A member of the RNA family "M-box riboswitch aptamer (ykoK leader)" from Kurthia sibirica, 173 nucleotides long. A search with the family's covariance model found it, with a score of 156 bits. For this family Rfam cites "Insights into metalloregulation by M-box riboswitch RNAs via structural analysis of manganese-bound complexes" (Ramesh et al., J Mol Biol, 2011). Gene Ontology terms of the family: regulation of gene expression and response to magnesium ion.
Nucleotides: 173
Stems, first nucleotide, its partner, number of pairs: 006168005011159002013096001015155003020149003025145008039114005045074002048071002054065004081105003087099003116133005
Number, partner (000 for none) and nucleotide at each position: 001000c002000a003000a004000a005000a006168g007167a008166u009165c010164u011159g012158u013096u014000a015155g016154g017153u018000g019000a020149g021148g022147c023000u024000c025145c026144u027143a028142u029141a030140c031139a032138a033000a034000c035000a036000u037000a038000g039114g040113c041112u042111a043110c044000u045074g046073c047000a048071c049070a050000a051000a052000a053000a054065c055064g056063u057062c058000g059000a060000a061000a062057g063056a064055c065054g066000c067000c068000a069000a070049u071048g072000g073046g074045u075000a076000g077000a078000a079000c080000a081105g082104g083103a084000u085000u086000u087099g088098u089097c090000g091000a092000u093000a094000u095000a096013a097089g098088g099087c100000a101000u102000c103083u104082c105081u106000u107000a108000a109000a110043g111042u112041a113040g114039c115000u116133a117132a118131a119130a120129g121000u122000a123000u124000u125000u126000a127000u128000a129120c130119u131118u132117u133116u134000u135000a136000c137000g138032u139031u140030g141029u142028a143027u144026a145025g146000u147022g148021c149020c150000a151000a152000a153017a154016c155015u156000c157000a158012a159011c160000g161000a162000u163000g164010a165009g166008a167007u168006c169000a170000u171000g172000u173000a